RNA: Plastid-psbA-4 3UTR RNA
RNA sequence: GAAAGUAAGGGGGCAAUACCUGUUUCUUGUCUGAUCAAGAAAUUGGUUAUUGCUCCCUUACUA
Number, nucleotide and partner (000 for none) at each position: 001g000002a000003a000004a000005g000006u000007a059008a058009g057010g056011g055012g054013g053014c052015a051016a050017u049018a048019c000020c000021u000022g043023u000024u041025u040026c039027u038028u037029g036030u000031c000032u000033g000034a000035u000036c029037a028038a027039g026040a025041a024042a000043u022044u000045g000046g000047u000048u018049a017050u016051u015052g014053c013054u012055c011056c010057c009058u008059u007060a000061c000062u000063a000